Source information:
The family of this 113-nucleotide RNA from Sinorhizobium medicae is "Alphaproteobacterial ar15". Its family is annotated with protein binding in the Gene Ontology. The family has 61 seed sequences and 316 matches in Rfam 15.1.
[Rfam]
RNA sequence: AGCUGGUGCAUAUAGCGGCUUUCUCCUCCCCAGCCGCUGCAGCAGCUGUUCCCCUCUGGAGGUUUGAAACCUUCACAACUGAAAGGGCCCAAGUUUUCUUGUGGCCCUCUUUU
Number, nucleotide and partner (000 for none) at each position: 001a047002g046003c045004u044005g043006g000007u041008g040009c039010a000011u000012a000013u000014a000015g037016c036017g035018g034019c000020u000021u000022u000023c000024u000025c000026c000027u000028c000029c000030c000031c000032a000033g000034c018035c017036g016037c015038u000039g009040c008041a007042g000043c005044a004045g003046c002047u001048g000049u000050u000051c000052c000053c000054c000055u000056c000057u075058g074059g073060a072061g071062g070063u069064u000065u000066g000067a000068a000069a063070c062071c061072u060073u059074c058075a057076c000077a000078a000079c000080u000081g000082a000083a000084a108085g107086g106087g105088c104089c103090c101091a100092a099093g098094u000095u000096u000097u000098c093099u092100u091101g090102u000103g089104g088105c087106c086107c085108u084109c000110u000111u000112u000113u000
Pairs were carried over by alignment from the consensus structure. Taxonomically the source falls in Sinorhizobium medicae (Bacteria, Pseudomonadota, Hyphomicrobiales, Rhizobiaceae). The sequence is in the family's curated seed alignment.